[Rfam]
RNA sequence: AACUUUAAACUAUAUAGCACUGAACCCAGUGUGAGAAAUCGAAAGCCAAGACCAUGGCUCUGGGAUAGGUCUGAAUGAUGUGGCUCAGCUUGAAGGAUACUUCAAGUCAACCAUUAGCUAUACUAUAUAUUGAAGUGUAUAGACAGCUUCUUCGCUCAAAACGGAGGUGGGAGUAUCAAGGAUCUAGUGCUAGGUACUAUGAGGAUACAGCACAACAAAGGCGUGCCAAUCAUAAUUGAAAGGUAAUGUGAAUAGCAUUACCCUAGAAUCCUAAAACCUGAUGGCGUCGAAACCCAUGCAGUAAGUAGGAAAUUCGAAUCAAGGUGGCAGAACACAAGAAAACGUAUGUAGAAAUGCAUACGAAAUAAAUCGUCAGAAAGUUGGUAUAAGUAGCUAAAGAGUGUUCAGUUCAAACUAGACUGGAAAGAUCCGCAAGCAAUGCGAAUAACUAUUUUUGACUGAAUGGUUAGUGAACAUGACAGGUAUCAAUCCUGUUGCAGCUUGGAUCCCUUCGGGGAUUGAUAGUAAAAGUCGAAGACCGUACAUCUUCAGGCUCAGGUUAUUAUUCUGUAUGGCUCAAUCCGUAGUAGUAUUGCAAGUAAGGGGAAGCCCUCUGUGCUGUAUAGUUUUAAG
Number, nucleotide and partner (000 for none) at each position: 001a000002a000003c000004u000005u000006u000007a630008a629009a628010c000011u626012a000013u000014a000015u000016a000017g620018c000019a000020c000021u616022g615023a000024a000025c064026c063027c062028a061029g060030u000031g000032u000033g000034a000035g000036a000037a000038a000039u000040c000041g000042a000043a000044a059045g058046c057047c056048a055049a000050g000051a000052c000053c000054a000055u048056g047057g046058c045059u044060c029061u028062g027063g026064g025065a000066u186067a185068g184069g183070u182071c181072u000073g000074a000075a000076u000077g000078a114079u113080g112081u110082g000083g108084c000085u106086c000087a000088g000089c000090u105091u104092g103093a102094a101095g100096g000097a000098u000099a000100c095101u094102u093103c092104a091105a090106g085107u000108c083109a000110a081111c000112c080113a079114u078115u000116a148117g147118c146119u145120a000121u000122a000123c142124u141125a140126u139127a138128u137129a136130u135131u000132g000133a000134a000135g130136u129137g128138u127139a126140u125141a124142g123143a000144c000145a119146g118147c117148u116149u000150c000151u000152u000153c171154g000155c000156u000157c000158a000159a000160a000161a000162c000163g000164g000165a000166g000167g000168u000169g000170g000171g153172a000173g000174u000175a000176u000177c000178a000179a000180g000181g071182a070183u069184c068185u067186a066187g000188u000189g000190c000191u000192a000193g614194g594195u000196a000197c000198u590199a000200u000201g000202a000203g000204g583205a000206u000207a000208c000209a000210g577211c000212a000213c383214a382215a381216c380217a000218a000219a000220g374221g373222c372223g371224u000225g000226c000227c327228a000229a325230u324231c323232a000233u000234a000235a000236u000237u000238g000239a000240a000241a000242g000243g000244u000245a259246a258247u257248g256249u000250g000251a000252a000253u000254a000255g000256c248257a247258u246259u245260a000261c000262c000263c000264u000265a000266g000267a000268a000269u310270c309271c308272u307273a306274a000275a000276a000277c000278c301279u300280g299281a000282u296283g295284g294285c000286g000287u317288c316289g315290a314291a000292a000293c000294c284295c283296a282297u000298g000299c280300a279301g278302u000303a000304a000305g000306u273307a272308g271309g270310a269311a000312a000313u000314u290315c289316g288317a287318a000319u000320c000321a000322a000323g231324g230325u229326g000327g227328c000329a000330g000331a405332a404333c403334a402335c401336a000337a000338g000339a000340a000341a000342a000343c000344g361345u360346a359347u358348g357349u356350a355351g000352a000353a000354a000355u350356g349357c348358a347359u346360a345361c344362g000363a000364a000365a000366u000367a000368a000369a000370u000371c223372g222373u221374c220375a000376g000377a000378a000379a000380g216381u215382u214383g213384g000385u000386a000387u476388a000389a000390g000391u000392a000393g471394c470395u469396a468397a467398a000399g000400a000401g335402u334403g333404u332405u331406c000407a000408g000409u000410u000411c000412a000413a000414a000415c000416u000417a000418g000419a000420c000421u000422g000423g000424a000425a000426a000427g000428a000429u000430c000431c000432g000433c000434a000435a000436g000437c000438a000439a000440u000441g000442c000443g000444a000445a000446u000447a000448a000449c000450u000451a000452u000453u000454u000455u000456u000457g000458a000459c558460u557461g556462a000463a000464u000465g000466g000467u397468u396469a395470g394471u393472g000473a000474a000475c000476a387477u000478g000479a000480c000481a000482g493483g492484u000485a000486u000487c000488a000489a000490u000491c000492c483493u482494g000495u000496u000497g571498c570499a569500g519501c000502u000503u000504g000505g000506a000507u517508c516509c515510c000511u000512u000513c000514g000515g509516g508517g507518a000519u500520u000521g568522a567523u000524a000525g564526u000527a000528a561529a000530a560531g555532u000533c552534g550535a549536a548537g547538a546539c000540c000541g000542u000543a000544c000545a000546u538547c537548u536549u535550c534551a000552g533553g000554c000555u531556c461557a460558g459559g000560u530561u528562a000563u000564u525565a000566u000567u522568c521569u499570g498571u497572a000573u000574g000575g000576c000577u210578c000579a000580a000581u000582c000583c204584g000585u000586a000587g000588u000589a000590g198591u000592a000593u000594u194595g000596c000597a000598a000599g000600u000601a000602a613603g612604g611605g610606g000607a000608a000609g000610c605611c604612c603613u602614c193615u022616g021617u000618g000619c000620u017621g000622u000623a000624u000625a000626g011627u000628u009629u008630u007631a000632a000633g000
The record is a 633-nucleotide RNA sequence, which matches "ROOL RNA" in Rfam. Rfam's curators put it in the seed alignment. Firmicutes, Fusobacteria (1 example), Tenericutes (1 example). By type it is a small RNA.